The family of this 170-nucleotide RNA from Caenorhabditis brenneri is "Nematode sRNA ceN72-3_ceN74-2".
RNA sequence: CACUUCGGUCCGGAGUUGAUGGGUUAUCCAGUCUGCCUUCUUCUGCUUGCAGAGGAAGGUCUGGUGUACUCGCGAUGCCAGAACCCGUUCUUCAGAUGUGAGUCUGUUGAACACCCCGCAACCCUCAAAAAGUUGCAAACCCUUCCCAUCAACACCAACUUGACCGUUGU
Numbered sequence: 001c002a003c004u005u006c007g008g009u010c011c012g013g014a015g016u017u018g019a020u021g022g023g024u025u026a027u028c029c030a031g032u033c034u035g036c037c038u039u040c041u042u043c044u045g046c047u048u049g050c051a052g053a054g055g056a057a058g059g060u061c062u063g064g065u066g067u068a069c070u071c072g073c074g075a076u077g078c079c080a081g082a083a084c085c086c087g088u089u090c091u092u093c094a095g096a097u098g099u100g101a102g103u104c105u106g107u108u109g110a111a112c113a114c115c116c117c118g119c120a121a122c123c124c125u126c127a128a129a130a131a132g133u134u135g136c137a138a139a140c141c142c143u144u145c146c147c148a149u150c151a152a153c154a155c156c157a158a159c160u161u162g163a164c165c166g167u168u169g170u
Base pairs, nucleotide, nucleotide: 002170003169006166007165008164009163010162012156013155015153016152017151018150019149020148021147022146023145039056040055041054042053043052044051045050118136119135120134121133122132
Taxonomically the source falls in Caenorhabditis (Eukaryota, Metazoa, Rhabditina, Rhabditomorpha). The literature on the family includes a 2007 paper in BMC Mol Biol by Jia et al., "Systematic identification of non-coding RNA 2,2,7-trimethylguanosine cap structures in Caenorhabditis elegans". A search with the family's covariance model found it, with a score of 99 bits.